[Rfam]
Nucleotides: 116
Base pairs, nucleotide, nucleotide: 002115003114006111007110008109009108010107011106012105013104015102016101017100018099019098021096022095023094024093025092026091027090028089029088030087032085033084034083035082036081037080038079039078040077041076042075043074
Number, partner (000 for none) and nucleotide at each position: 001000c002115a003114g004000a005000g006111u007110a008109u009108c010107c011106u012105u013104u014000a015102a016101c017100c018099u019098u020000g021096c022095u023094u024093a025092g026091u027090u028089u029088a030087a031000c032085c033084a034083a035082a036081u037080g038079a039078a040077c041076u042075a043074a044000a045000a046000c047000u048000c049000a050000a051000a052000a053000a054000u055000g056000u057000c058000a059000c060000a061000a062000c063000u064000u065000u066000u067000u068000a069000a070000a071000a072000a073000a074043u075042u076041a077040g078039u079038u080037c081036a082035u083034u084033u085032g086000u087030u088029u089028g090027a091026a092025c093024u094023a095022a096021g097000a098019a099018g100017g101016g102015u103000c104013a105012a106011a107010g108009g109008a110007u111006a112000a113000c114003c115002u116000g

Annotation: MIR5070 microRNA precursor family: a 116-nucleotide RNA sequence from Brachypodium distachyon. Pairs were carried over by alignment from the consensus structure, which was predicted with RNAalifold. Rfam links the family to the GO terms miRNA-mediated post-transcriptional gene silencing and RISC complex. The source organism's lineage runs through Eukaryota, Viridiplantae, Streptophyta, Mesangiospermae and Brachypodium. Its Rfam clan is "MIR2863 microRNA precursor clan".